[Rfam]
RNA sequence: GCCAAAGCGAUGAAGGGGAGUGCCGGCGGCCCACUCCGGUAGGCGAGAGAGCUGGUGGUUGGUGGGAACCAGCCCGGAGGCUGUCGGGAGGCACCCCUGAGUACCCGGCGAGAAAUCCUGUUAAGGAAUUAAGCCGGGGCGGUCAUGUCCGUUACGCAUGUCGAGGGGGUCAGGUUUGGCAUAAUAACCUGGCCAAGCAGGGUGGCACCGCGGGUAAAACUCUCGUCCCUUUU
Number, nucleotide and partner (000 for none) at each position: 001g000002c000003c000004a000005a000006a000007g102008c101009g000010a000011u000012g000013a000014a000015g097016g096017g095018g094019a000020g000021u000022g000023c087024c086025g085026g084027c083028g082029g000030c000031c000032c000033a000034c000035u000036c000037c076038g075039g074040u000041a000042g000043g000044c000045g000046a000047g000048a000049g000050a000051g073052c072053u071054g070055g069056u068057g000058g000059u000060u000061g000062g000063u000064g000065g000066g000067a000068a056069c055070c054071a053072g052073c051074c039075c038076g037077g000078a000079g000080g000081c000082u028083g027084u026085c025086g024087g023088g000089a000090g000091g000092c000093a000094c018095c017096c016097c015098u000099g000100a000101g008102u007103a000104c138105c137106c136107g135108g134109c133110g000111a000112g000113a000114a000115a000116u000117c000118c000119u000120g000121u000122u000123a000124a000125g000126g000127a000128a000129u000130u000131a000132a000133g109134c108135c107136g106137g105138g104139g000140c151141g150142g149143u000144c000145a000146u000147g000148u000149c142150c141151g140152u000153u000154a000155c000156g000157c000158a000159u000160g000161u000162c000163g000164a000165g000166g000167g000168g194169g193170u192171c191172a190173g189174g188175u187176u186177u000178g000179g000180c000181a000182u000183a000184a000185u000186a176187a175188c174189c173190u172191g171192g170193c169194c168195a000196a000197g000198c000199a230200g229201g228202g227203u000204g000205g000206c000207a000208c000209c000210g226211c225212g224213g223214g222215u000216a000217a000218a000219a000220c000221u000222c214223u213224c212225g211226u210227c202228c201229c200230u199231u000232u000233u000

T-box leader: a 233-nucleotide RNA sequence from Neomoorella thermoacetica. Rfam describes the family as follows. Uncharged tRNA acts as the effector for transcription antitermination of genes in the T-box leader family. Rfam 15.1 lists 19,395 matches to the family in 1,923 species. Rfam classes the family as a cis-regulatory leader. It is one of the family's seed sequences. Taxonomically the source falls in Neomoorella thermoacetica (Bacteria, Clostridia, Neomoorellales, Neomoorella).